[Rfam]
RNA sequence: UGAUGUUGCUGUUAAUGUGCACGGCAGACAUUAGAUGAAUAGAACGCACAUUCCUGGAGUAUUAAAAAUGGCAUUAAGUGUCGAAAAGAAAGCAGAAAUCAUUAAAGAGUUCGGUCAAAGUGAA
Numbered sequence: 001u002g003a004u005g006u007u008g009c010u011g012u013u014a015a016u017g018u019g020c021a022c023g024g025c026a027g028a029c030a031u032u033a034g035a036u037g038a039a040u041a042g043a044a045c046g047c048a049c050a051u052u053c054c055u056g057g058a059g060u061a062u063u064a065a066a067a068a069u070g071g072c073a074u075u076a077a078g079u080g081u082c083g084a085a086a087a088g089a090a091a092g093c094a095g096a097a098a099u100c101a102u103u104a105a106a107g108a109g110u111u112c113g114g115u116c117a118a119a120g121u122g123a124a
Stems, first nucleotide, its partner, number of pairs: 007026006053078001055076003059072001